RNA: mir-166 microRNA precursor family
RNA sequence: UUUGAGGGGAAUGUUGUCUGGCUCGAGGAUGUUUUUGUGAAACAAAUUUUUCUUGCAUUAGUUUGUUCUUAUGGAUCUUGUUGUUGUUGUAAGGGAUUUGAGUUUGUGGCAGCGCCGUCGGACCAGGCUUCAUUCCCCCCAAU
Numbered sequence: 001u002u003u004g005a006g007g008g009g010a011a012u013g014u015u016g017u018c019u020g021g022c023u024c025g026a027g028g029a030u031g032u033u034u035u036u037g038u039g040a041a042a043c044a045a046a047u048u049u050u051u052c053u054u055g056c057a058u059u060a061g062u063u064u065g066u067u068c069u070u071a072u073g074g075a076u077c078u079u080g081u082u083g084u085u086g087u088u089g090u091a092a093g094g095g096a097u098u099u100g101a102g103u104u105u106g107u108g109g110c111a112g113c114g115c116c117g118u119c120g121g122a123c124c125a126g127g128c129u130u131c132a133u134u135c136c137c138c139c140c141a142a143u
Base pairs, nucleotide, nucleotide: 002142003141004140006138007137008136009135010134011133012132013131016128017127018126019125020124021123024120025119026118